[Rfam]
RNA sequence: AGUCCCAGUUACUGGCCCUUGGCGGCUGUAUACAUCGAUGCCGCUCCACAGGAUACCCAUUGAGGCCAGA
Numbered sequence: 001a002g003u004c005c006c007a008g009u010u011a012c013u014g015g016c017c018c019u020u021g022g023c024g025g026c027u028g029u030a031u032a033c034a035u036c037g038a039u040g041c042c043g044c045u046c047c048a049c050a051g052g053a054u055a056c057c058c059a060u061u062g063a064g065g066c067c068a069g070a
Base pairs, nucleotide, nucleotide: 002066003065004064006062007061015054016052017051022044023043024042025041026040
RNA: Trypanosomatid snoRNA TB6Cs1H4
Organism: Trypanosoma rangeli